Small nucleolar RNA SNORA17: a 133-nucleotide sequence from Oncorhynchus mykiss. The base pairs follow the family's consensus structure, which was predicted with RNAalifold. Rfam describes the family as follows. snoRNA ACA 17 belongs to the H/ACA family of snoRNAs and is predicted to guide pseudouridylation of the 28S rRNA at positions U4659 and U4598. Gene Ontology terms of the family: RNA processing and nucleolus.
RNA sequence: CCUGCCCCUUGAGACGUUGCAGUCCGACUGUGCGUGUUGAGCCUGUGUCAUGAGGGGCGCAGAGUAACAGGGCUGUGUCUACGCAGCGGACUCAGAACAGUGGGUACUUGGAGUGAUUGAUCGAACUGACAUG
Numbered sequence: 001c002c003u004g005c006c007c008c009u010u011g012a013g014a015c016g017u018u019g020c021a022g023u024c025c026g027a028c029u030g031u032g033c034g035u036g037u038u039g040a041g042c043c044u045g046u047g048u049c050a051u052g053a054g055g056g057g058c059g060c061a062g063a064g065u066a067a068c069a070g071g072g073c074u075g076u077g078u079c080u081a082c083g084c085a086g087c088g089g090a091c092u093c094a095g096a097a098c099a100g101u102g103g104g105u106a107c108u109u110g111g112a113g114u115g116a117u118u119g120a121u122c123g124a125a126c127u128g129a130c131a132u133g
Stems, first nucleotide, its partner, number of pairs: 003059009013049003019046004024041001025039004070127002073123001075121002082115002087110002090105004